[Rfam]
Small nucleolar RNA snoR100: a 106-nucleotide RNA sequence from Rhododendron simsii. The organism belongs to Rhododendron, within Eukaryota. The match comes from Rfam's covariance-model search (79 bits). It is annotated as an H/ACA-box small nucleolar RNA. The literature on the family includes a 2002 paper in Curr Biol by Marker et al., "Experimental RNomics: identification of 140 candidates for small non-messenger RNAs in the plant Arabidopsis thaliana".
Nucleotides: 106
Stems, first nucleotide, its partner, number of pairs: 012025004040091001042089003050081003054075001056073001
Number, partner (000 for none) and nucleotide at each position: 001000g002000a003000u004000c005000g006000a007000a008000a009000a010000a011000a012025g013024c014023a015022u016000g017000g018000u019000a020000a021000u022015a023014u024013g025012c026000a027000c028000a029000u030000a031000a032000a033000u034000u035000a036000a037000u038000u039000u040091g041000g042089g043088u044087c045000u046000c047000u048000a049000g050081g051080u052079c053000u054075g055000c056073c057000c058000u059000c060000u061000c062000u063000g064000a065000u066000g067000c068000c069000a070000u071000u072000u073056g074000a075054c076000u077000u078000u079052g080051a081050u082000u083000u084000g085000g086000g087044g088043g089042c090000a091040u092000g093000a094000u095000u096000c097000u098000a099000c100000a101000a102000c103000a104000a105000u106000a